Rfam assigns this 134-nucleotide sequence from Gossypium lobatum to the family "MIR7502 microRNA precursor family". The source organism's lineage runs through Eukaryota, Spermatophyta, Magnoliopsida, Malvaceae and Gossypium. The base pairs follow the family's consensus structure, which was predicted with RNAalifold. Rfam 15.1 lists 74,505 matches to the family in 24 species. It scores 85 bits against the family's covariance model.
RNA sequence: UAUUAAAAAUUUCAUUUAUUUCUAUUGUUGAAAAUUGAUGUGGUUAAUGGAAUAACUAGACAGUUACACGUGUAUCUCAUGUUGAUGUACAAUGAUCGAUUUUUAACAGUACAAAAUGGAUUGAAUUUUUAACA
Numbered sequence: 001u002a003u004u005a006a007a008a009a010u011u012u013c014a015u016u017u018a019u020u021u022c023u024a025u026u027g028u029u030g031a032a033a034a035u036u037g038a039u040g041u042g043g044u045u046a047a048u049g050g051a052a053u054a055a056c057u058a059g060a061c062a063g064u065u066a067c068a069c070g071u072g073u074a075u076c077u078c079a080u081g082u083u084g085a086u087g088u089a090c091a092a093u094g095a096u097c098g099a100u101u102u103u104u105a106a107c108a109g110u111a112c113a114a115a116a117u118g119g120a121u122u123g124a125a126u127u128u129u130u131a132a133c134a
Stems, first nucleotide, its partner, number of pairs: 003132010014121003018117003021113001023111004028106006